small nucleolar RNA snoR135: a 139-nucleotide RNA from Nelumbo nucifera. The family's consensus secondary structure was predicted with RNAalifold. Its family is annotated with RNA processing and nucleolus in the Gene Ontology.

RNA sequence: AUGGCAGGGAUGGUGUGGUGUGUAUCGGUGUUGUUGAAUGCACUUUUCCCGAAAGAGUCCCCUGCAACAUUGAAUUGGGGAAGAUGGGCAGUUGGCUAUCAUCCCUCAUUGAUACGUCAACAAACAUUUCCCCAAUUCU
Dot-bracket structure: ...((((((..........((((((............))))))................))))))...........((((((.(((....((((.......................))))...)))))))))......
Numbered sequence: 001a002u003g004g005c006a007g008g009g010a011u012g013g014u015g016u017g018g019u020g021u022g023u024a025u026c027g028g029u030g031u032u033g034u035u036g037a038a039u040g041c042a043c044u045u046u047u048c049c050c051g052a053a054a055g056a057g058u059c060c061c062c063u064g065c066a067a068c069a070u071u072g073a074a075u076u077g078g079g080g081a082a083g084a085u086g087g088g089c090a091g092u093u094g095g096c097u098a099u100c101a102u103c104c105c106u107c108a109u110u111g112a113u114a115c116g117u118c119a120a121c122a123a124a125c126a127u128u129u130c131c132c133c134a135a136u137u138c139u
Stems, first nucleotide, its partner, number of pairs: 004065006020043006077133006084127003091121004